The family of this 197-nucleotide sequence from Agrilus planipennis is "R2 RNA element". The source organism's lineage runs through Eukaryota, Ecdysozoa, Mandibulata, Neoptera and Agrilus. About the family: This family represents the 3' UTR region of the R2 retrotransposable element. This family is known to interact with the R2-encoded reverse transcriptase in a reaction known as target primed reverse transcription (TPRT). It scores 46 bits against the family's covariance model.

[Rfam]
RNA sequence: AGAUUACUGUUCAAAAUAGUUAAGGAUGUGGAUUGCUCUAGUUUUAGCGGCUGAAGAGGACCCUAGUUGGUCCUAGAACGGCCUGAGGUAGAGGGGUUUUAGUCGGUAUGUCCGAGGAUUUCUUCGUCGGGAAUCCGACACUACCCAGUCGUACGAACGGCUGGGUGUCUUUUGAAGAUUUCCCCUCUUCCACGAAA
Numbered sequence: 001a002g003a004u005u006a007c008u009g010u011u012c013a014a015a016a017u018a019g020u021u022a023a024g025g026a027u028g029u030g031g032a033u034u035g036c037u038c039u040a041g042u043u044u045u046a047g048c049g050g051c052u053g054a055a056g057a058g059g060a061c062c063c064u065a066g067u068u069g070g071u072c073c074u075a076g077a078a079c080g081g082c083c084u085g086a087g088g089u090a091g092a093g094g095g096g097u098u099u100u101a102g103u104c105g106g107u108a109u110g111u112c113c114g115a116g117g118a119u120u121u122c123u124u125c126g127u128c129g130g131g132a133a134u135c136c137g138a139c140a141c142u143a144c145c146c147a148g149u150c151g152u153a154c155g156a157a158c159g160g161c162u163g164g165g166u167g168u169c170u171u172u173u174g175a176a177g178a179u180u181u182c183c184c185c186u187c188u189u190c191c192a193c194g195a196a197a
Stems, first nucleotide, its partner, number of pairs: 037059003067196002070193002087191002090188002093184003102139005111131005116125003141167001143166005